[Rfam]
RNA sequence: UACCCACUGAUUUCAAAAGGUGUUGGAUUCCAUAUAUCCAGCAGGUGGAAUCCAACACCUUUUGAAAUCAGUGGGUA
Numbered sequence: 001u002a003c004c005c006a007c008u009g010a011u012u013u014c015a016a017a018a019g020g021u022g023u024u025g026g027a028u029u030c031c032a033u034a035u036a037u038c039c040a041g042c043a044g045g046u047g048g049a050a051u052c053c054a055a056c057a058c059c060u061u062u063u064g065a066a067a068u069c070a071g072u073g074g075g076u077a
Stems, first nucleotide, its partner, number of pairs: 001077004007071009017061006024054010
Background
Shown here is a 77-nucleotide RNA from Pelusios castaneus, a member of the family "mir-29 microRNA precursor family". On this family, see Ambros, Cell 2001: "microRNAs: tiny regulators with great potential". The match comes from Rfam's covariance-model search (49 bits). Its family is annotated with RISC complex and gene silencing by miRNA in the Gene Ontology. This family represents the microRNA (miRNA) precursors mir-29.